[Rfam]
RNA sequence: ACACGCUUCGGAGAUGGCAUUCCUCCCUGAACCGCCGCUUCUGGCCUUGAAUCCUUGCGGGUUCGCCGGCCAGACGCAGCUGAUGAUGCCUACAAGUUC
Numbered sequence: 001a002c003a004c005g006c007u008u009c010g011g012a013g014a015u016g017g018c019a020u021u022c023c024u025c026c027c028u029g030a031a032c033c034g035c036c037g038c039u040u041c042u043g044g045c046c047u048u049g050a051a052u053c054c055u056u057g058c059g060g061g062u063u064c065g066c067c068g069g070c071c072a073g074a075c076g077c078a079g080c081u082g083a084u085g086a087u088g089c090c091u092a093c094a095a096g097u098u099c
Stems, first nucleotide, its partner, number of pairs: 010026004016090006034080002037077001
Rfam assigns this 99-nucleotide RNA sequence from Collimonas fungivorans to the family "Fluoride riboswitch aptamer (crcB RNA motif)". It scores 44 bits against the family's covariance model.